This 38-nucleotide RNA from Oryza barthii belongs to the Rfam family "Plastid psbT antisense RNA". The match comes from Rfam's covariance-model search (50 bits). The family has 93 seed sequences and 1,866 matches in Rfam 15.1. Rfam's curators write: Plastid-psbT-asRNA is an antisense RNA (asRNA) motif reported in Plastids It has been shown that psbT expression is controlled by two antisense RNAs originated from psbN transcription by the nuclear-encoded polymerase (NEP), in which the short antisense RNA hybridizes to psbT CDS, thereby stabilizing psbT transcript while blocking its translation during photooxidative stress.

[Rfam]
RNA sequence: GUAGUUGAAUCUCUGACUUUUUGGAAUGUUCCAAAUUC
Dot-bracket structure: ..(((((......))))).((((((....))))))...